Rfam assigns this 60-nucleotide RNA sequence to the family "RAGATH-30 RNA".
[Rfam]
RNA sequence: GUAAAAAUAAGAGAAUAAUCGAAAUAACCUACAAAGGUAGGAUCUGCAGUGUGGCAGAAA
Numbered sequence: 001g002u003a004a005a006a007a008u009a010a011g012a013g014a015a016u017a018a019u020c021g022a023a024a025u026a027a028c029c030u031a032c033a034a035a036g037g038u039a040g041g042a043u044c045u046g047c048a049g050u051g052u053g054g055c056a057g058a059a060a
Stems, first nucleotide, its partner, number of pairs: 028041005043058005
The sequence is in the family's curated seed alignment. The base pairs follow the family's consensus structure, which is taken from published work. Rfam classes the family as a small RNA.